[Rfam]
RNA sequence: GGGAGGAACAACCCCACUGGCGGCGGCCAGCUCUCCAGUCCUGGGGUCAGCUCCCCCAGUAACUACGGCAGCUCCCGGUCCGCAGGGGCCUGGAUGCUCCGGGGUGGG
Numbered sequence: 001g002g003g004a005g006g007a008a009c010a011a012c013c014c015c016a017c018u019g020g021c022g023g024c025g026g027c028c029a030g031c032u033c034u035c036c037a038g039u040c041c042u043g044g045g046g047u048c049a050g051c052u053c054c055c056c057c058a059g060u061a062a063c064u065a066c067g068g069c070a071g072c073u074c075c076c077g078g079u080c081c082g083c084a085g086g087g088g089c090c091u092g093g094a095u096g097c098u099c100c101g102g103g104g105u106g107g108g
Stems, first nucleotide, its partner, number of pairs: 002100004007095001009092002012088003019080003023076001025075002029073004033068002037064001041059003

The record is a 108-nucleotide RNA sequence from Nyctereutes procyonoides, which matches "mir-8834 microRNA precursor family" in Rfam.
The base pairs follow the family's consensus structure, which was predicted with RNAalifold.
Rfam links the family to the GO terms RISC complex and miRNA-mediated post-transcriptional gene silencing.
A search with the family's covariance model found it, with a score of 43 bits.